[Rfam]
The record is a 64-nucleotide sequence from Alicyclobacillus tolerans, which matches "Fluoride riboswitch aptamer (crcB RNA motif)" in Rfam. It scores 42 bits against the family's covariance model. The base pairs follow the family's consensus structure, which is taken from published work. Taxonomically the source falls in Alicyclobacillus (Bacteria, Bacillota, Caryophanales, Alicyclobacillaceae). Gene Ontology terms of the family: response to fluoride and positive regulation of gene expression.
RNA sequence: AGUGAUAUCGGUGAUGGAGCUCACCAGAAAGCCUCUACAAGAGGAUGAUGGCUCCUGCAAAAGC
Numbered sequence: 001a002g003u004g005a006u007a008u009c010g011g012u013g014a015u016g017g018a019g020c021u022c023a024c025c026a027g028a029a030a031g032c033c034u035c036u037a038c039a040a041g042a043g044g045a046u047g048a049u050g051g052c053u054c055c056u057g058c059a060a061a062a063g064c
Base pairs, nucleotide, nucleotide: 010025011024012023013022016055017054018053019052020051021050032044033043034042